Background
A member of the RNA family "UnaL2 LINE 3' element" from Ameiurus melas, 54 nucleotides long. The eel long interspersed element (LINE) UnaL2 and its partner short interspersed element (SINE) share a conserved 3' tail containing a stem-loop that is critical for their retrotransposition. Presumably, the first step of retrotransposition is the recognition of their 3' tails by UnaL2-encoded reverse transcriptase. The solution structure of a 17-nucleotide RNA derived from the 3' tail of UnaL2 was determined by NMR. Pairs were carried over by alignment from the consensus structure, which is taken from published work.
[Rfam]
RNA sequence: UAUUUUCUCAUUUGUAAGUCGCUUUGGAUAAAAGCGUCUGCUAAAUGAAGCUUG
Numbered sequence: 001u002a003u004u005u006u007c008u009c010a011u012u013u014g015u016a017a018g019u020c021g022c023u024u025u026g027g028a029u030a031a032a033a034g035c036g037u038c039u040g041c042u043a044a045a046u047g048a049a050g051c052u053u054g
Stems, first nucleotide, its partner, number of pairs: 013043001014041003020036006